[Rfam]
RNA sequence: UGCCGCGUGGUGUAACGGUAGCACAAGAGAUUUUGGUUCUCUUUGUUAAGGUUCGAAUCCUUACGCGGUAA
Numbered sequence: 001u002g003c004c005g006c007g008u009g010g011u012g013u014a015a016c017g018g019u020a021g022c023a024c025a026a027g028a029g030a031u032u033u034u035g036g037u038u039c040u041c042u043u044u045g046u047u048a049a050g051g052u053u054c055g056a057a058u059c060c061u062u063a064c065g066c067g068g069u070a071a
Stems, first nucleotide, its partner, number of pairs: 001070007010024004026042005047063005